[Rfam]
RNA sequence: GUCGGCGUGAUCACGGUUCAGCCGCAGCCGGUCGAGGUCGUCGCCGACCUGCCGGGCCGCACGAACGCCUAUCUCGUCGCGCAAGUGCGUGCGCGCGUCGACGGCAUCGUGCUGCGCCGCGAAUUCACGGAAGGCGCCGAGGUCAAGGCCGGUCAACGGCUUUACAAGAUCGA
Numbered sequence: 001g002u003c004g005g006c007g008u009g010a011u012c013a014c015g016g017u018u019c020a021g022c023c024g025c026a027g028c029c030g031g032u033c034g035a036g037g038u039c040g041u042c043g044c045c046g047a048c049c050u051g052c053c054g055g056g057c058c059g060c061a062c063g064a065a066c067g068c069c070u071a072u073c074u075c076g077u078c079g080c081g082c083a084a085g086u087g088c089g090u091g092c093g094c095g096c097g098u099c100g101a102c103g104g105c106a107u108c109g110u111g112c113u114g115c116g117c118c119g120c121g122a123a124u125u126c127a128c129g130g131a132a133g134g135c136g137c138c139g140a141g142g143u144c145a146a147g148g149c150c151g152g153u154c155a156a157c158g159g160c161u162u163u164a165c166a167a168g169a170u171c172g173a
Stems, first nucleotide, its partner, number of pairs: 003054005008047001011043001013041004018037002023031001055150004059143002066136003072133001074131002078093005094121002097118001099116002102114005157172002160168002
RNA: Burkholderia RNA 14
Organism: Pararobbsia silviterrae